The record is a 169-nucleotide RNA from Marvinbryantia formatexigens, which matches "Clostridiales-1 RNA" in Rfam. The base pairs follow the family's consensus structure, which is taken from published work. The match comes from Rfam's covariance-model search (140 bits). NCBI's taxonomy places the organism under Bacteria, Bacillati, Clostridia, Marvinbryantia, Marvinbryantia formatexigens. The family has 194 seed sequences and 1,172 matches in Rfam 15.1.
RNA sequence: UGAUGCCAGGGUCAAAAAGUCUGAGCCUGCAUGAGCUUGCUCAUUAGCAGGUGAAAGACUUUGAGACCCGCCCCGGUAUGAGCAUAAAAGUGGGAUGUAUAUCCCACGAUAUGCGAAUAUUGGGUAUGGAUUGCGGGAGUGCGCAGCACGGAGCAAUCCACUGGCAUCA
Number, nucleotide and partner (000 for none) at each position: 001u169002g168003a167004u166005g165006c164007c163008a000009g000010g068011g067012u066013c065014a000015a000016a062017a061018a060019g059020u058021c057022u056023g000024a000025g000026c051027c050028u049029g048030c047031a044032u043033g042034a041035g040036c000037u000038u000039g000040c035041u034042c033043a032044u031045u000046a000047g030048c029049a028050g027051g026052u000053g000054a000055a000056a022057g021058a020059c019060u018061u017062u016063g000064a000065g013066a012067c011068c010069c000070g000071c000072c124073c123074c122075g121076g120077u119078a118079u117080g000081a000082g114083c113084a112085u111086a000087a000088a000089a000090g107091u106092g105093g104094g103095a102096u101097g000098u000099a000100u000101a096102u095103c094104c093105c092106a091107c090108g000109a000110u000111a085112u084113g083114c082115g000116a000117a079118u078119a077120u076121u075122g074123g073124g072125u000126a000127u000128g159129g158130a157131u156132u155133g154134c153135g000136g000137g000138a000139g149140u148141g147142c146143g000144c000145a000146g142147c141148a140149c139150g000151g000152a000153g134154c133155a132156a131157u130158c129159c128160a000161c000162u000163g007164g006165c005166a004167u003168c002169a001